[Rfam]
raiA-hairpin RNA: a 49-nucleotide RNA sequence from Streptomyces sp. NRRL S-1521. The base pairs follow the family's consensus structure, which is taken from published work. The organism belongs to Streptomyces, within Bacteria. The family's RNA type in Rfam is small RNA.
RNA sequence: CGCCGAGUCCGAGCCCCCGGGAGACCACCGGGGUCUGGUGCAAAAGGGA
Dot-bracket structure: ............(.((((((.......)))))).)..............